RNA sequence: UUUCGCAUUGGGUUUAUUAUCCACAAUGGCAUUACCGACCGCGUGCAAUAAGUGCGUUUUACCCAAGCCUGUACCACCGUA
Numbered sequence: 001u002u003u004c005g006c007a008u009u010g011g012g013u014u015u016a017u018u019a020u021c022c023a024c025a026a027u028g029g030c031a032u033u034a035c036c037g038a039c040c041g042c043g044u045g046c047a048a049u050a051a052g053u054g055c056g057u058u059u060u061a062c063c064c065a066a067g068c069c070u071g072u073a074c075c076a077c078c079g080u081a
Stems, first nucleotide, its partner, number of pairs: 004043003009038001011036003016032002020029002052077003056074002061072002

Record summary: A member of the RNA family "antisense RNA of dnaA mRNA" from Vibrio genomosp. F10, 81 nucleotides long. The match comes from Rfam's covariance-model search (61 bits). The literature on the family includes a 2013 paper in PLoS One by Dadzie et al., "Identification and characterization of a cis-encoded antisense RNA associated with the replication process of Salmonella enterica serovar Typhi".